[Rfam]
RNA sequence: GGAUCGAUGAGGACAACAAGUCUCUGAGAACGGUGAUCGACUCAUACAAAUGGCAAUCUGAGGUCC
Numbered sequence: 001g002g003a004u005c006g007a008u009g010a011g012g013a014c015a016a017c018a019a020g021u022c023u024c025u026g027a028g029a030a031c032g033g034u035g036a037u038c039g040a041c042u043c044a045u046a047c048a049a050a051u052g053g054c055a056a057u058c059u060g061a062g063g064u065c066c
Base pairs, nucleotide, nucleotide: 001066002065003064004063005062
This 66-nucleotide RNA from Cricetulus griseus belongs to the Rfam family "Small nucleolar RNA SNORD109A". From the family's description: Humans have two copies of the SNORD109 gene, SNORD109A and SNORD109B. The organism belongs to Cricetulus, within Eukaryota. The family's consensus secondary structure was predicted with WAR. Rfam links the family to the GO terms nucleolus and RNA processing. Its Rfam clan is "SNORD74 clan". The literature on the family includes a 2001 paper in Hum Mol Genet by Runte et al., "The IC-SNURF-SNRPN transcript serves as a host for multiple small nucleolar RNA species and as an antisense RNA for UBE3A". Rfam classes the family as a C/D-box small nucleolar RNA.